[Rfam]
RNA: Ribosomal protein L10 leader
Organism: Ureibacillus terrenus
RNA sequence: UAUUGUGAUUCAUUUGUACCGUAGACAGUAGGGGUGCUUUUGCACUUAAACUUUCCCUACCGAGGUCAUAAAUCGAUUCUUUGAUGAUGACGUUUUAUGCCUUCGUGUGUCUACACGGAGGCUUUUCUUUUAGCGGU
Number, nucleotide and partner (000 for none) at each position: 001u000002a000003u000004u000005g000006u000007g000008a000009u000010u000011c000012a000013u000014u000015u000016g000017u000018a000019c000020c000021g000022u000023a000024g000025a000026c000027a000028g060029u059030a058031g057032g056033g055034g045035u044036g043037c000038u000039u000040u000041u000042g000043c036044a035045c034046u000047u000048a000049a000050a000051c000052u000053u000054u000055c033056c032057c031058u030059a029060c028061c000062g000063a000064g000065g000066u000067c000068a000069u000070a000071a000072a000073u000074c000075g000076a000077u000078u000079c000080u000081u000082u000083g000084a000085u000086g000087a000088u000089g000090a000091c000092g000093u000094u000095u000096u000097a000098u000099g122100c121101c120102u119103u118104c117105g116106u115107g114108u113109g000110u000111c000112u000113a108114c107115a106116c105117g104118g103119a102120g101121g100122c099123u000124u000125u000126u000127c000128u000129u000130u000131u000132a000133g000134c000135g000136g000137u000